Background: The record is an 87-nucleotide RNA from Anaerocolumna chitinilytica, which matches "c-di-GMP-I riboswitch aptamer" in Rfam. A reference for the family is Weinberg et al. (2007), "Identification of 22 candidate structured RNAs in bacteria using the CMfinder comparative genomics pipeline", Nucleic Acids Res.
[Rfam]
RNA sequence: CACCGAUAAAGGCAAAAUCAGCGAAAGCUGAUGACGCAAAGCUAUAGGGCCUUAUUUAUUUUUAUAAAUUGGCAGCCAGUUACCGAA
Numbered sequence: 001c002a003c004c005g006a007u008a009a010a011g012g013c014a015a016a017a018u019c020a021g022c023g024a025a026a027g028c029u030g031a032u033g034a035c036g037c038a039a040a041g042c043u044a045u046a047g048g049g050c051c052u053u054a055u056u057u058a059u060u061u062u063u064a065u066a067a068a069u070u071g072g073c074a075g076c077c078a079g080u081u082a083c084c085g086a087a
Stems, first nucleotide, its partner, number of pairs: 012037002017032006040081004047077002049073003056067004
A search with the family's covariance model found it, with a score of 82 bits.